RNA sequence: CUUGGUUACGGUGACAUGUAUCCGCGAACGGCCUUGGGCUACAUCGUCGGCGCCGUCUGCGCACUGUGCGGUCUGCUCAUGUUGGCGCUUCCGGUUCCGGUCAUCGUCAGCAAC
Numbered sequence: 001c002u003u004g005g006u007u008a009c010g011g012u013g014a015c016a017u018g019u020a021u022c023c024g025c026g027a028a029c030g031g032c033c034u035u036g037g038g039c040u041a042c043a044u045c046g047u048c049g050g051c052g053c054c055g056u057c058u059g060c061g062c063a064c065u066g067u068g069c070g071g072u073c074u075g076c077u078c079a080u081g082u083u084g085g086c087g088c089u090u091c092c093g094g095u096u097c098c099g100g101u102c103a104u105c106g107u108c109a110g111c112a113a114c
Stems, first nucleotide, its partner, number of pairs: 002113001004111001008107004013102003018097001020095002037077003050062002